[Rfam]
Nucleotides: 126
Stems, first nucleotide, its partner, number of pairs: 017047005023036005061103005083097005114125004
Number, partner (000 for none) and nucleotide at each position: 001000u002000g003000c004000g005000a006000c007000g008000g009000g010000u011000c012000g013000a014000g015000u016000a017047a018046g019045c020044u021043a022000a023036g024035u025034u026033a027032a028000g029000c030000a031000a032027u033026u034025a035024a036023c037000a038000a039000a040000a041000a042000a043021u044020a045019g046018c047017u048000g049000a050000a051000u052000g053000a054000c055000u056000g057000c058000a059000g060000g061103a062102g063101u064100a065099c066000a067000c068000g069000a070000u071000u072000g073000g074000c075000g076000a077000c078000a079000a080000u081000c082000a083097c084096c085095u086094g087093c088000c089000g090000g091000a092000u093087g094086c095085a096084g097083g098000g099065g100064u101063a102062c103061u104000g105000g106000g107000c108000a109000a110000a111000g112000g113000a114125u115124u116123u117122u118000g119000u120000g121000g122117a123116g124115a125114a126000a
Rfam assigns this 126-nucleotide RNA from Enterococcus sp. PFB1-1 to the family "Enterococcus sRNA 68 (Lacto-3 RNA)".